RNA sequence: GGUUUGCAGGCAGUGUAGUUAGCUGAUUGUACCCAGCGCCCCACAAUCACUAAAUUCACUGCCAUCAAAAC
Numbered sequence: 001g002g003u004u005u006g007c008a009g010g011c012a013g014u015g016u017a018g019u020u021a022g023c024u025g026a027u028u029g030u031a032c033c034c035a036g037c038g039c040c041c042c043a044c045a046a047u048c049a050c051u052a053a054a055u056u057c058a059c060u061g062c063c064a065u066c067a068a069a070a071c
Stems, first nucleotide, its partner, number of pairs: 003069004009063002012060004017055001019053004024049007